Rfam assigns this 114-nucleotide RNA from Actinomyces howellii to the family "ALIL pseudoknot". It scores 69 bits against the family's covariance model. The family's consensus secondary structure is taken from published work. Rfam links the family to the GO term positive regulation of translational frameshifting. NCBI's taxonomy places the organism under Bacteria, Actinomycetes, Actinomycetales, Actinomycetaceae, Actinomyces. On this family, see Mazauric et al., J Biol Chem 2008: "Apical loop-internal loop RNA pseudoknots: a new type of stimulator of -1 translational frameshifting in bacteria".
[Rfam]
RNA sequence: CGCGUAUUUCGCCCAGGCGGAGCUCGACCGCCUGUGAAUGACGUGGUCCGCUUCAUCGAGGAGCACAAGGAACCUGGCGGCGUGCUCCCAGGUCCCUGAGGACCUGGUGCGCCG
Numbered sequence: 001c002g003c004g005u006a007u008u009u010c011g012c013c014c015a016g017g018c019g020g021a022g023c024u025c026g027a028c029c030g031c032c033u034g035u036g037a038a039u040g041a042c043g044u045g046g047u048c049c050g051c052u053u054c055a056u057c058g059a060g061g062a063g064c065a066c067a068a069g070g071a072a073c074c075u076g077g078c079g080g081c082g083u084g085c086u087c088c089c090a091g092g093u094c095c096c097u098g099a100g101g102a103c104c105u106g107g108u109g110c111g112c113c114g
Stems, first nucleotide, its partner, number of pairs: 016032005075114005086109001089106007